[Rfam]
RNA sequence: GCUCGAACUGAGCUCUGCACGGCAGGAGCGGGGGACCCACAGGUAAGUCGCCGGACGGGAGUUCGCGCUUUCGAGCGUGAACGUCCAGGACCGGCUAGGGGUGAAGCCGCGCACGCGGCCGGGCAACUCCAGCCCGAACCCGACAGCUCACCUCGUAGGCGUGGGAGAGGAAAGUU
Numbered sequence: 001g002c003u004c005g006a007a008c009u010g011a012g013c014u015c016u017g018c019a020c021g022g023c024a025g026g027a028g029c030g031g032g033g034g035a036c037c038c039a040c041a042g043g044u045a046a047g048u049c050g051c052c053g054g055a056c057g058g059g060a061g062u063u064c065g066c067g068c069u070u071u072c073g074a075g076c077g078u079g080a081a082c083g084u085c086c087a088g089g090a091c092c093g094g095c096u097a098g099g100g101g102u103g104a105a106g107c108c109g110c111g112c113a114c115g116c117g118g119c120c121g122g123g124c125a126a127c128u129c130c131a132g133c134c135c136g137a138a139c140c141c142g143a144c145a146g147c148u149c150a151c152c153u154c155g156u157a158g159g160c161g162u163g164g165g166a167g168a169g170g171a172a173a174g175u176u
Stems, first nucleotide, its partner, number of pairs: 001160003008026002028156006038098001099141003107118004121135004